[Rfam]
RNA sequence: AAAUAAGAAUAAAUAAAGCCCCAUAUAAUUUUGAGAAUAUGGCUCGGAAGUUUCUACGUUGCACCGUAAAUGCUACGACUAUGGGGGAGGAUGAUGUGGUC
Numbered sequence: 001a002a003a004u005a006a007g008a009a010u011a012a013a014u015a016a017a018g019c020c021c022c023a024u025a026u027a028a029u030u031u032u033g034a035g036a037a038u039a040u041g042g043c044u045c046g047g048a049a050g051u052u053u054c055u056a057c058g059u060u061g062c063a064c065c066g067u068a069a070a071u072g073c074u075a076c077g078a079c080u081a082u083g084g085g086g087g088a089g090g091a092u093g094a095u096g097u098g099g100u101c
Base pairs, nucleotide, nucleotide: 019086020085021084022083023082024081025080029049030048031047032046033045034044035043057077058076059075061073062072063071
This 101-nucleotide sequence from Pseudogracilibacillus auburnensis belongs to the Rfam family "Purine riboswitch aptamer".
Pairs were carried over by alignment from the consensus structure, which is taken from published work.
NCBI's taxonomy places the organism under Bacteria, Bacillota, Caryophanales, Bacillaceae, Pseudogracilibacillus.